[Rfam]
RNA sequence: CUCGUUCUUCGCGCGGGAGCUCGACCCGCGACUGCCGUGGUGAUCGCGUUCAUCACCGAUCACCGGGACCGGUUCGGGGUCGAGCCGAUCUGCUCCGUGCUCACCGAGCACGGCGUGAAGAUCGCCCCG
Numbered sequence: 001c002u003c004g005u006u007c008u009u010c011g012c013g014c015g016g017g018a019g020c021u022c023g024a025c026c027c028g029c030g031a032c033u034g035c036c037g038u039g040g041u042g043a044u045c046g047c048g049u050u051c052a053u054c055a056c057c058g059a060u061c062a063c064c065g066g067g068a069c070c071g072g073u074u075c076g077g078g079g080u081c082g083a084g085c086c087g088a089u090c091u092g093c094u095c096c097g098u099g100c101u102c103a104c105c106g107a108g109c110a111c112g113g114c115g116u117g118a119a120g121a122u123c124g125c126c127c128c129g
Stems, first nucleotide, its partner, number of pairs: 013029005075129005086124002089121003093117001
RNA: ALIL pseudoknot